The record is a 133-nucleotide sequence from Equus caballus, which matches "Small nucleolar RNA SNORA13" in Rfam.

RNA sequence: AGCCUUUGUGUUGCCCAUUCACUUUUGAAACUAGUGAAUGUGGUGUCAAAAAAGGCGCAAACUAAACACUUGGCAGCUUUUUCCUGCCCUUGAAUUUGAUAUCUUUGGUGUAGAAGCUGCAUAAGUAACAGUU
Numbered sequence: 001a002g003c004c005u006u007u008g009u010g011u012u013g014c015c016c017a018u019u020c021a022c023u024u025u026u027g028a029a030a031c032u033a034g035u036g037a038a039u040g041u042g043g044u045g046u047c048a049a050a051a052a053a054g055g056c057g058c059a060a061a062c063u064a065a066a067c068a069c070u071u072g073g074c075a076g077c078u079u080u081u082u083c084c085u086g087c088c089c090u091u092g093a094a095u096u097u098g099a100u101a102u103c104u105u106u107g108g109u110g111u112a113g114a115a116g117c118u119g120c121a122u123a124a125g126u127a128a129c130a131g132u133u
Base pairs, nucleotide, nucleotide: 002056003055004054005053006052007051009048010047012045013044014043015042016040017039018038019037020036021035022034023033068126069125070124071123073120074119075118076117077116082115084113085112086111087110088108089107092103093102

The organism belongs to Equus, within Eukaryota. Rfam describes the family as follows. ACA13 is a member of the H/ACA class of snoRNA that guide the sites of modification of uridines to pseudouridines.